[Rfam]
RNA sequence: AAUGCAAGCCGUUCUAUCGCUGUAAGUAAUGCUCCGGCAUCUUAGAGAGGAAAGUCCGGGCAACACAGAGCAUCCCGCUUCCUAACGGGAAGAGGUUUGGGAAUGAAGACCUGAAUUAUGGAAAGUGCCGCAGAAAGUAUACCGCCGAUGGCCCAGGCACAGGUAAGGUUGAAAACGUGAGGUAAGAGCUCACGAAUUUUCCGGGCGACCGGAAGAGCUGGUAAACCCCGGGAGUUGAAAGACCAAAUAGGCUGACGCAUGUAGGGCUGCUCGUCCGAUGUCAGUGGGUAGGUCGUUAGAGAUAAAUGGCAACAUUUAUAGUAGAUUAAUGAUAGAAGCCCUGAUUCGUUGGGGUACAGAACCCGGCUUACAGGCUUGCAUUUUUU
Number, nucleotide and partner (000 for none) at each position: 001a382002a381003u380004g379005c378006a377007a376008g375009c374010c373011g371012u337013u336014c335015u334016a333017u332018c331019g000020c047021u046022g000023u044024a043025a042026g041027u000028a000029a000030u000031g000032c000033u000034c000035c000036g000037g000038c000039a000040u000041c026042u025043u024044a023045g000046a021047g020048a000049g000050g000051a000052a369053a368054g367055u000056c366057c365058g364059g363060g362061c237062a236063a235064c234065a000066c000067a000068g272069a271070g270071c269072a000073u233074c232075c231076c230077g229078c092079u091080u090081c089082c088083u000084a000085a000086c000087g000088g082089g081090a080091a079092g078093a119094g117095g116096u115097u114098u113099g112100g111101g110102a000103a000104u000105g000106a000107a000108g000109a000110c101111c100112u099113g098114a097115a096116u095117u094118a000119u093120g228121g227122a000123a000124a000125g226126u225127g222128c221129c220130g000131c000132a000133g000134a000135a000136a000137g000138u000139a000140u000141a000142c168143c167144g164145c163146c162147g000148a000149u159150g158151g000152c156153c000154c000155a000156g152157g000158c150159a149160c000161a000162g146163g145164u144165a000166a000167g143168g142169u000170u000171g000172a000173a000174a000175a000176c194177g193178u192179g191180a190181g189182g000183u000184a000185a000186g000187a000188g000189c181190u180191c179192a178193c177194g176195a000196a000197u216198u215199u214200u213201c212202c211203g210204g209205g000206c000207g000208a000209c204210c203211g202212g201213a200214a199215g198216a197217g000218c000219u000220g129221g128222u127223a000224a000225a126226c125227c121228c120229c077230g076231g075232g074233a073234g064235u063236u062237g061238a000239a000240a000241g294242a293243c292244c291245a000246a000247a000248u000249a000250g000251g285252c284253u283254g282255a281256c280257g000258c000259a000260u000261g000262u000263a000264g276265g275266g274267c273268u000269g071270c070271u069272c068273g267274u266275c265276c264277g000278a000279u000280g256281u255282c254283a253284g252285u251286g000287g000288g000289u000290a000291g244292g243293u242294c241295g000296u000297u000298a000299g000300a000301g000302a319303u318304a317305a316306a315307u314308g313309g000310c000311a000312a000313c308314a307315u306316u305317u304318a303319u302320a000321g000322u000323a000324g000325a000326u000327u000328a000329a000330u000331g018332a017333u016334a015335g014336a013337a012338g000339c000340c000341c000342u000343g000344a000345u000346u000347c000348g000349u000350u000351g000352g000353g000354g000355u000356a000357c000358a000359g000360a000361a000362c060363c059364c058365g057366g056367c054368u053369u052370a000371c011372a000373g010374g009375c008376u007377u006378g005379c004380a003381u002382u001383u000384u000385u000386u000

The family of this 386-nucleotide sequence from Pedobacter hartonius is "Bacterial RNase P class A". On this family, see Frank and Pace, Annu Rev Biochem 1998: "Ribonuclease P: unity and diversity in a tRNA processing ribozyme". By type it is a ribozyme. Lineage of the source: Bacteria > Bacteroidota > Sphingobacteriia > Sphingobacteriaceae > Pedobacter.